Proteo-phage-1 RNA: an 81-nucleotide RNA sequence from Salinisphaera orenii. By type it is a small RNA. Taxonomically the source falls in Salinisphaera orenii subsp. orenii (Bacteria, Salinisphaerales, Salinisphaera, Salinisphaera orenii).
[Rfam]
RNA sequence: GGGCUGCCGUCGCCCGAGCCAGGCUCUAGGACGGACGCGGAUUAGUCGGCGAGUGCCGUGCAUGACAAAACCCCGACGGCC
Dot-bracket structure: [[[[..(((((]]]].(((...)))....))))).(((((....[[[[[......)))))............]]]]]....